A member of the RNA family "Guanidine-I riboswitch aptamer" from Mammaliicoccus stepanovicii, 100 nucleotides long.
Lineage of the source: Bacteria > Bacillati > Bacilli > Staphylococcaceae > Mammaliicoccus.
RNA sequence: AUAAAAGCUUUCUAGGGUUCCGUAACGAUAUUGUUAGCCUGGACCGAGAGAAAGCCACAAGUAUGAACUUGUGACACGGAAGGAUAAAAGCCUGGGAGAC
Numbered sequence: 001a002u003a004a005a006a007g008c009u010u011u012c013u014a015g016g017g018u019u020c021c022g023u024a025a026c027g028a029u030a031u032u033g034u035u036a037g038c039c040u041g042g043a044c045c046g047a048g049a050g051a052a053a054g055c056c057a058c059a060a061g062u063a064u065g066a067a068c069u070u071g072u073g074a075c076a077c078g079g080a081a082g083g084a085u086a087a088a089a090g091c092c093u094g095g096g097a098g099a100c
Stems, first nucleotide, its partner, number of pairs: 007055006015045002020042002022039001023036005056073007075095001077098001081093003

Rfam's curators write: This family represents a conserved RNA structure found upstream of the ykkC and yxkD genes in Bacillus subtilis and related genes in other bacteria. The base pairs follow the family's consensus structure.